A member of the RNA family "Small nucleolar RNA R160" from Phaseolus vulgaris, 80 nucleotides long. The organism belongs to Phaseolus, within Eukaryota. The pairing is the family consensus, mapped onto this sequence. The family has 9 seed sequences and 799 matches in Rfam 15.1. On this family, see Chen et al., Nucleic Acids Res 2003: "The high diversity of snoRNAs in plants: identification and comparative study of 120 snoRNA genes from Oryza sativa".

RNA sequence: AGCGAAAUGAUGAAAUCAAACUUGUCUGAGACUGAUGAGGAUAUACUGUUUCAUAAGGUCUUCAAAGUUCUCUGAUUGCU
Numbered sequence: 001a002g003c004g005a006a007a008u009g010a011u012g013a014a015a016u017c018a019a020a021c022u023u024g025u026c027u028g029a030g031a032c033u034g035a036u037g038a039g040g041a042u043a044u045a046c047u048g049u050u051u052c053a054u055a056a057g058g059u060c061u062u063c064a065a066a067g068u069u070c071u072c073u074g075a076u077u078g079c080u
Base pairs, nucleotide, nucleotide: 001080002079003078004077005076